The record is a 409-nucleotide RNA from Azobacteroides pseudotrichonymphae, which matches "transfer-messenger RNA" in Rfam. Gene Ontology term of the family: RNA catabolic process. Rfam classes the family as a non-coding RNA gene. Bacterial tmRNA, also known as 10Sa RNA or SsrA, is named for its dual tRNA and mRNA-like properties. Its role is to liberate the mRNA from a stalled ribosome. The base pairs follow the family's consensus structure, which is taken from published work.
RNA sequence: GGGCUUGACUGGCUUUGACAUCGGGUAGAAAUGAUUUGUAAGCAUGUAGUGCGUCGUUGUUCGGCACUUUAAUCUCGGAUGAUAAUUAUAUUAACUGGCGAAAAUUUUUACGCUCUUGCUGCUUAGCAGAAGUUAUAGUAGGUCUAAGCUUUAUUCCGUCUCAAGGAGACCGGAACGAGACAUCACUCAGAAGCUCUGUCUUCGAAGCAAUCUGAAAAAGUGGUGCUGUCCAAUAUCGGAGAUAGUUUGGAGUAAUCCUUGUGCUUCAGAUGAAUUAAAAAGGAUAGGCUCAACAAUUGAGGGAUUCCUUAGUCCUGUGCUGAGUCCAAAAAAUAAAAUAGGGAUAAACAUGUAGAAAUCAAAUUGGUUCCUCGUUUGGACGAGGGUUCGAAUCCCUCCAAGUCCACAC
Numbered sequence: 001g002g003g004c005u006u007g008a009c010u011g012g013c014u015u016u017g018a019c020a021u022c023g024g025g026u027a028g029a030a031a032u033g034a035u036u037u038g039u040a041a042g043c044a045u046g047u048a049g050u051g052c053g054u055c056g057u058u059g060u061u062c063g064g065c066a067c068u069u070u071a072a073u074c075u076c077g078g079a080u081g082a083u084a085a086u087u088a089u090a091u092u093a094a095c096u097g098g099c100g101a102a103a104a105u106u107u108u109u110a111c112g113c114u115c116u117u118g119c120u121g122c123u124u125a126g127c128a129g130a131a132g133u134u135a136u137a138g139u140a141g142g143u144c145u146a147a148g149c150u151u152u153a154u155u156c157c158g159u160c161u162c163a164a165g166g167a168g169a170c171c172g173g174a175a176c177g178a179g180a181c182a183u184c185a186c187u188c189a190g191a192a193g194c195u196c197u198g199u200c201u202u203c204g205a206a207g208c209a210a211u212c213u214g215a216a217a218a219a220g221u222g223g224u225g226c227u228g229u230c231c232a233a234u235a236u237c238g239g240a241g242a243u244a245g246u247u248u249g250g251a252g253u254a255a256u257c258c259u260u261g262u263g264c265u266u267c268a269g270a271u272g273a274a275u276u277a278a279a280a281a282g283g284a285u286a287g288g289c290u291c292a293a294c295a296a297u298u299g300a301g302g303g304a305u306u307c308c309u310u311a312g313u314c315c316u317g318u319g320c321u322g323a324g325u326c327c328a329a330a331a332a333a334u335a336a337a338a339u340a341g342g343g344a345u346a347a348a349c350a351u352g353u354a355g356a357a358a359u360c361a362a363a364u365u366g367g368u369u370c371c372u373c374g375u376u377u378g379g380a381c382g383a384g385g386g387u388u389c390g391a392a393u394c395c396c397u398c399c400a401a402g403u404c405c406a407c408a409c
Stems, first nucleotide, its partner, number of pairs: 001405007019378002022374004027369001030368001032366007043352005048068005053083006151178002154175005181225006188214004193208002195205001199241001201239002204236001245271009256284005287326006294319002302315003308343002382398005